[Rfam]
RNA: MIR394 microRNA precursor family
RNA sequence: UAUGCAGAGCCAGUUUGGCAUUCUGUCCACCUCCAUGUGUGUUAGUGUUUAUGGCGGUGAAGAUUGCCAACAAUCGGAGGUGGUCAGCCUGCUAAAUUAGCUCUGUAAG
Numbered sequence: 001u002a003u004g005c006a007g008a009g010c011c012a013g014u015u016u017g018g019c020a021u022u023c024u025g026u027c028c029a030c031c032u033c034c035a036u037g038u039g040u041g042u043u044a045g046u047g048u049u050u051a052u053g054g055c056g057g058u059g060a061a062g063a064u065u066g067c068c069a070a071c072a073a074u075c076g077g078a079g080g081u082g083g084u085c086a087g088c089c090u091g092c093u094a095a096a097u098u099a100g101c102u103c104u105g106u107a108a109g
Stems, first nucleotide, its partner, number of pairs: 015095006024086002027083008